[Rfam]
Nucleotides: 091
Base pairs, nucleotide, nucleotide: 003084004083005082009078010077011076015074016073017072018071019070020069021068022066023065024064026062027061029059030058032052033051034050
Number, partner (000 for none) and nucleotide at each position: 001000u002000u003084c004083a005082c006000c007000u008000g009078g010077g011076g012000a013000a014000u015074c016073u017072u018071g019070u020069u021068a022066a023065a024064a025000u026062g027061c028000a029059g030058a031000u032052u033051c034050u035000g036000a037000u038000u039000c040000a041000g042000u043000a044000g045000g046000g047000c048000u049000g050034g051033g052032a053000u054000g055000g056000g057000g058030u059029c060000c061027g062026c063000a064024u065023u066022u067000c068021u069020a070019a071018c072017a073016a074015g075000u076011u077010c078009c079000c080000a081000g082005g083004u084003g085000g086000u087000g088000c089000c090000c091000a
Record summary
The family of this 91-nucleotide sequence from Trichechus manatus is "mir-544 microRNA precursor family". It scores 68 bits against the family's covariance model. The family has 16 seed sequences and 10,750 matches in Rfam 15.1. For this family Rfam cites "Mammalian microRNAs: experimental evaluation of novel and previously annotated genes" (Chiang et al., Genes Dev, 2010).